Record summary: Rfam assigns this 61-nucleotide sequence from Drosophila virilis to the family "Nanos 3' UTR translation control element". The literature on the family includes a 2000 paper in Mol Cell by Crucs et al., "Overlapping but distinct RNA elements control repression and activation of nanos translation". Rfam classes the family as a cis-regulatory element. From the family's description: The Nanos protein in Drosophila is required for correct anterior/posterior patterning in the Drosophila embryo. Translation of the nanos mRNA is repressed in the bulk cytoplasm and activated in the posterior region. Repression is mediated by a translation control element (TCE) in the 3' UTR of the mRNA. This element forms a Y-shaped structure, part of which is recognised by the Smaug protein leading to translational repression. The organism belongs to Drosophila, within Eukaryota.

[Rfam]
Nucleotides: 061
Base pairs, nucleotide, nucleotide: 001061002060003059004058005023006022007021008020009019010018011017027055028054029053030052032050033049034048035047036046037045
Number, partner (000 for none) and nucleotide at each position: 001061u002060g003059g004058a005023a006022g007021a008020a009019g010018c011017u012000c013000u014000g015000g016000c017011a018010g019009c020008u021007u022006u023005u024000u025000a026000a027055g028054c029053g030052u031000u032050u033049a034048u035047a036046u037045a038000a039000g040000a041000g042000u043000u044000a045037u046036a047035u048034a049033u050032a051000u052030g053029c054028g055027c056000g057000u058004u059003c060002c061001a